Shown here is a 121-nucleotide RNA from Filobacillus milosensis, a member of the family "PyrR binding site". It scores 63 bits against the family's covariance model. Taxonomically the source falls in Filobacillus (Bacteria, Bacillota, Bacilli, Caryophanales). The base pairs follow the family's consensus structure, which is taken from published work. The family's RNA type in Rfam is cis-regulatory element.

[Rfam]
RNA sequence: CGAACCUUUAAAAGAUAGUCCAGAGAGGCUAAGAAGGUUGUGAAUGUAACUUGUGUCAUAUUACCGGGAGUAGUAUGUACAGGUAUACCUCUUUGCGACCUUUCGCAAAGAGUUUUUUUUA
Dot-bracket structure: ..(((((((......(((((......))))).)))))))...........(((((.((((((((.....)))))))))))))..(.(.((((((((((....)))))))))).).).....
Numbered sequence: 001c002g003a004a005c006c007u008u009u010a011a012a013a014g015a016u017a018g019u020c021c022a023g024a025g026a027g028g029c030u031a032a033g034a035a036g037g038u039u040g041u042g043a044a045u046g047u048a049a050c051u052u053g054u055g056u057c058a059u060a061u062u063a064c065c066g067g068g069a070g071u072a073g074u075a076u077g078u079a080c081a082g083g084u085a086u087a088c089c090u091c092u093u094u095g096c097g098a099c100c101u102u103u104c105g106c107a108a109a110g111a112g113u114u115u116u117u118u119u120u121a
Stems, first nucleotide, its partner, number of pairs: 003039007016031005051082005057077008085116001087114001089112010